[Rfam]
RNA sequence: GGUUCAUGAUGACGUGGGACCUUGUCUGAGCGUAAUGAUUUCAAACUUUGAGCUUGACAUGACACUGAAAUC
Numbered sequence: 001g002g003u004u005c006a007u008g009a010u011g012a013c014g015u016g017g018g019a020c021c022u023u024g025u026c027u028g029a030g031c032g033u034a035a036u037g038a039u040u041u042c043a044a045a046c047u048u049u050g051a052g053c054u055u056g057a058c059a060u061g062a063c064a065c066u067g068a069a070a071u072c
Stems, first nucleotide, its partner, number of pairs: 001072004
RNA: Small nucleolar RNA SNORD107
Organism: Pteropus alecto